[Rfam]
Nucleotides: 503
Stems, first nucleotide, its partner, number of pairs: 001471004010465003014461003019456002035059001037057003060229002063226001065223001067221002069217005075206002078203006084177003090171002097165004101160001103158001105156001110151001112149002116145003120141002124137004230234001242450007250441001253267001255265001270305007281292004309436003313367003318364002320360004325356001328355003336347003368386006387391001407423005484501004
Number, partner (000 for none) and nucleotide at each position: 001471u002470g003469g004468a005000a006000c007000a008000a009000u010465a011464u012463a013000u014461g015460c016459a017000a018000a019456g020455g021000a022000a023000g024000u025000c026000g027000g028000a029000a030000a031000a032000a033000u034000a035059g036000a037057u038056c039055c040000g041000u042000a043000a044000c045000c046000u047000c048000g049000a050000c051000a052000a053000a054000a055039g056038g057037a058000a059035u060229g061228g062000c063226u064000c065223u066000a067221a068220g069217a070216g071215u072214u073213g074000g075206g076205c077000a078203c079202g080201g081200g082199g083198g084177u085176c086175c087000c088000a089000g090171u091170c092000c093000c094000g095000a096000a097165c098164c099163c100162g101160u102000c103158g104000c105156c106000u107000g108000u109000c110151g111000a112149u113148g114000u115000a116145c117144u118143g119000c120141u121140c122000a123000a124137g125136c126135u127134a128000c129000u130000c131000u132000u133000a134127u135126g136125g137124c138000g139000a140121g141120a142000a143118c144117g145116g146000g147000u148113c149112a150000c151110c152000a153000c154000g155000u156105g157000c158103u159000a160101g161000c162100c163099g164098g165097g166000g167000g168000a169000c170091g171090a172000a173000c174000u175086g176085g177084a178000a179000a180000c181000a182000g183000c184000u185000c186000c187000c188000u189000c190000g191000a192000g193000g194000g195000c196000c197000u198083u199082c200081c201080c202079c203078g204000a205076g206075u207000g208000a209000c210000g211000a212000a213073c214072a215071g216070u217069u218000g219000a220068c221067u222000c223065a224000a225000a226063a227000a228061u229060u230234g231000g232000u233000a234230u235000a236000g237000a238000c239000a240000a241000g242450g243449g244448g245447a246446a247445u248444c249000c250441g251000a252000c253267u254000a255265u256000u257000u258000a259000a260000u261000u262000a263000a264000a265255a266000c267253a268000a269000a270305g271304c272303a273302u274301u275300g276299c277000a278000a279000u280000g281292g282291u283290c284289c285000c286000u287000a288000u289284g290283g291282a292281u293000g294000c295000u296000c297000a298000c299276g300275u301274a302273a303272u304271g305270u306000g307000a308000u309436u310435u311434c312000u313367g314366c315365c316000a317000a318364g319363u320360g321359c322358u323357c324000u325356g326000a327000a328355u329354g330353u331000c332000a333000a334000a335000g336347u337346g338345a339000u340000g341000a342000a343000a344000u345338u346337c347336a348000a349000c350000c351000a352000a353330g354329c355328g356325u357323g358322g359321g360320u361000a362000a363319a364318u365315g366314g367313u368386g369385g370384g371383a372382g373381u374000a375000a376000c377000u378000a379000u380000g381373a382372c383371u384370c385369u386368c387391u388000u389000a390000a391387g392000g393000u394000a395000g396000c397000c398000a399000a400000a401000u402000g403000c404000c405000u406000c407423g408422u409421c410420a411419u412000c413000u414000a415000a416000u417000u418000a419411g420410u421409g422408a423407u424000g425000a426000a427000u428000g429000u430000g431000a432000a433000u434311g435310a436309a437000u438000u439000a440000a441250c442000u443000a444248g445247a446246u447245u448244c449243c450242c451000a452000c453000u454000g455020u456019c457000c458000c459016u460015g461014u462000c463012u464011a465010u466000u467000a468004u469003c470002u471001a472000g473000u474000g475000a476000a477000a478000c479000c480000a481000c482000a483000g484501c485500c486499a487498a488000a489000g490000g491000a492000a493000c494000g495000a496000g497000c498487u499486u500485g501484g502000u503000a
A member of the RNA family "Eukaryotic large subunit ribosomal RNA" from Gossypium laxum, 503 nucleotides of a longer RNA. The family's consensus secondary structure is taken from published work. Gene Ontology terms of the family: structural constituent of ribosome and ribosome. A search with the family's covariance model found it, with a score of 2387 bits.